[Rfam]
RNA sequence: UGUGCAGGACUUGUCUAAAUAGGCAUACAACUUUCAUUGUGUUACUUGCCACCUGAACUUGUUCCCUGCUAGACCAAUCUGAGAAAAAUGGGCAGUUGAGUUUGGCCUGUCUUGUGGUUCCCUCAACAAUCAUUUUUCCCAUAGUU
Numbered sequence: 001u002g003u004g005c006a007g008g009a010c011u012u013g014u015c016u017a018a019a020u021a022g023g024c025a026u027a028c029a030a031c032u033u034u035c036a037u038u039g040u041g042u043u044a045c046u047u048g049c050c051a052c053c054u055g056a057a058c059u060u061g062u063u064c065c066c067u068g069c070u071a072g073a074c075c076a077a078u079c080u081g082a083g084a085a086a087a088a089u090g091g092g093c094a095g096u097u098g099a100g101u102u103u104g105g106c107c108u109g110u111c112u113u114g115u116g117g118u119u120c121c122c123u124c125a126a127c128a129a130u131c132a133u134u135u136u137u138c139c140c141a142u143a144g145u146u
Base pairs, nucleotide, nucleotide: 004069005068006067007066008065016044017043018042081140083138084137085136086135087134088133089132090131091130095127096126097125098124
Rfam assigns this 146-nucleotide sequence from Dichanthelium oligosanthes to the family "small nucleolar RNA snoR135".
A search with the family's covariance model found it, with a score of 65 bits.
The base pairs follow the family's consensus structure, which was predicted with RNAalifold.
By type it is an H/ACA-box small nucleolar RNA.
Its family is annotated with RNA processing and nucleolus in the Gene Ontology.
The source organism's lineage runs through Eukaryota, Streptophyta, Magnoliopsida, commelinids and Dichanthelium.